[Rfam]
RNA sequence: CCAUAUGUUAUGAUUAGAAAUAGUAGAAGUGACUUGACCUCUCAGAGAGCCGUUGUUAGGUGGGAAACGGCAGCGUUCGUCAUUUCGAAGUCGUCUAUGAACAGCUUGCCCGACAAAGUAGGGCAAGACGGAAUUCCACCGUUACAGGGAUAGAUGGUGAUGGCCAUCGAAAGAGAUCAUUUUGAGUACGAAAUGAAUUAGAGUGGUACCGCGGGUCAACCCCGUCUCUAUA
Numbered sequence: 001c002c003a004u005a006u007g008u009u010a011u012g013a014u015u016a017g018a019a020a021u022a023g024u025a026g027a028a029g030u031g032a033c034u035u036g037a038c039c040u041c042u043c044a045g046a047g048a049g050c051c052g053u054u055g056u057u058a059g060g061u062g063g064g065a066a067a068c069g070g071c072a073g074c075g076u077u078c079g080u081c082a083u084u085u086c087g088a089a090g091u092c093g094u095c096u097a098u099g100a101a102c103a104g105c106u107u108g109c110c111c112g113a114c115a116a117a118g119u120a121g122g123g124c125a126a127g128a129c130g131g132a133a134u135u136c137c138a139c140c141g142u143u144a145c146a147g148g149g150a151u152a153g154a155u156g157g158u159g160a161u162g163g164c165c166a167u168c169g170a171a172a173g174a175g176a177u178c179a180u181u182u183u184g185a186g187u188a189c190g191a192a193a194u195g196a197a198u199u200a201g202a203g204u205g206g207u208a209c210c211g212c213g214g215g216u217c218a219a220c221c222c223c224g225u226c227u228c229u230a231u232a
Base pairs, nucleotide, nucleotide: 007102008101015097016096017095018094026086027085028084029083030082031081039073040072049071050070051069052068053067054066105127106126107125108124109123110122111121129141130140131139178195179194180193181192182191183190184189200229201228202227203226211225212224213223214222215221
Description:
Rfam assigns this 232-nucleotide sequence from Paenibacillus sp. JCM 10914 to the family "T-box leader". On this family, see Grundy et al., RNA 2000: "tRNA determinants for transcription antitermination of the Bacillus subtilis tyrS gene". NCBI's taxonomy places the organism under Bacteria, Bacillati, Bacilli, Paenibacillaceae, Paenibacillus. A search with the family's covariance model found it, with a score of 135 bits. It is annotated as a cis-regulatory leader.